[Rfam]
RNA sequence: UGAGCAGAGCAGACGAUCGCGGGCGCAUGUAAGGAAACGGUGCGCGUGAGGAAAGUCCGGGCUUCACAGGGCAGGAUACCGGCUAACGGCCGGCGGAGGCGACUCCCGGGAAAGUGCAACAGAAAUAAACUACCGCACUCUGUGCGGAAAAGGUGAAAAGGCGGUGUAAGAGACCACCGUGCACGCAGUAAUGCGUGCAGCCAUGUAAACCCUAUCCGAAGCAAGACCGAAUAAGGAUACCAUGAACCGGCCCGGUUCGUAUCCAGGUAGGCCGCUCGAGACCUGUGGCAACGCAGGCCCUAGAAAGAUGAUCGUCCAACGACAUAACCCGGCUUAUCGCCCUGCUCACAUU
Numbered sequence: 001u002g003a004g005c006a007g008a009g010c011a012g013a014c015g016a017u018c019g020c021g022g023g024c025g026c027a028u029g030u031a032a033g034g035a036a037a038c039g040g041u042g043c044g045c046g047u048g049a050g051g052a053a054a055g056u057c058c059g060g061g062c063u064u065c066a067c068a069g070g071g072c073a074g075g076a077u078a079c080c081g082g083c084u085a086a087c088g089g090c091c092g093g094c095g096g097a098g099g100c101g102a103c104u105c106c107c108g109g110g111a112a113a114g115u116g117c118a119a120c121a122g123a124a125a126u127a128a129a130c131u132a133c134c135g136c137a138c139u140c141u142g143u144g145c146g147g148a149a150a151a152g153g154u155g156a157a158a159a160g161g162c163g164g165u166g167u168a169a170g171a172g173a174c175c176a177c178c179g180u181g182c183a184c185g186c187a188g189u190a191a192u193g194c195g196u197g198c199a200g201c202c203a204u205g206u207a208a209a210c211c212c213u214a215u216c217c218g219a220a221g222c223a224a225g226a227c228c229g230a231a232u233a234a235g236g237a238u239a240c241c242a243u244g245a246a247c248c249g250g251c252c253c254g255g256u257u258c259g260u261a262u263c264c265a266g267g268u269a270g271g272c273c274g275c276u277c278g279a280g281a282c283c284u285g286u287g288g289c290a291a292c293g294c295a296g297g298c299c300c301u302a303g304a305a306a307g308a309u310g311a312u313c314g315u316c317c318a319a320c321g322a323c324a325u326a327a328c329c330c331g332g333c334u335u336a337u338c339g340c341c342c343u344g345c346u347c348a349c350a351u352u
Stems, first nucleotide, its partner, number of pairs: 001348007009340002011337001012316007020048002023045006053335003057332005062221004069253004074217005079093005094108001095106004109212002114210002116206003130152002133147006160178002163175003179201001180199008225273001227271002235264006244258005280299001282297006

Bacterial RNase P class A: a 352-nucleotide RNA from Lachnospiraceae bacterium NK3A20.